[Rfam]
RNA sequence: UACCUGUAAUGGGUCUCCAUCAGAAGGUGCGCCGUAAUCCACACUCGUGUUUCCAUUUCUCCGCUGUGGCCGAGAGCCCGGUUCGAGUCCAGUGGUGUCCGUUUUUCCCACUCUUUCGGGUAACCAAAGAUGCUGGGCGGGCCUAAGCAAUGAAUACUACAUGUCGAGGGAAGCAAUUCUGCAGACGCGUAUUCACCAUUGGACGGCGGUGCUGGAAUACUCUUGCUACGGUUGGAAGCUCUUGUGCGGGCUGGCGUUUCGACUGAUAUU
Numbered sequence: 001u002a003c004c005u006g007u008a009a010u011g012g013g014u015c016u017c018c019a020u021c022a023g024a025a026g027g028u029g030c031g032c033c034g035u036a037a038u039c040c041a042c043a044c045u046c047g048u049g050u051u052u053c054c055a056u057u058u059c060u061c062c063g064c065u066g067u068g069g070c071c072g073a074g075a076g077c078c079c080g081g082u083u084c085g086a087g088u089c090c091a092g093u094g095g096u097g098u099c100c101g102u103u104u105u106u107c108c109c110a111c112u113c114u115u116u117c118g119g120g121u122a123a124c125c126a127a128a129g130a131u132g133c134u135g136g137g138c139g140g141g142c143c144u145a146a147g148c149a150a151u152g153a154a155u156a157c158u159a160c161a162u163g164u165c166g167a168g169g170g171a172a173g174c175a176a177u178u179c180u181g182c183a184g185a186c187g188c189g190u191a192u193u194c195a196c197c198a199u200u201g202g203a204c205g206g207c208g209g210u211g212c213u214g215g216a217a218u219a220c221u222c223u224u225g226c227u228a229c230g231g232u233u234g235g236a237a238g239c240u241c242u243u244g245u246g247c248g249g250g251c252u253g254g255c256g257u258u259u260c261g262a263c264u265g266a267u268a269u270u
Stems, first nucleotide, its partner, number of pairs: 002014003019267005029257006038250003042246003047241001049239006065230003069227001071225006078215005083209003087204009103141003107137004112130005118125002143147001151195007162187004170179003
RNA: Fungal signal recognition particle RNA
Organism: Melanomma pulvis-pyrius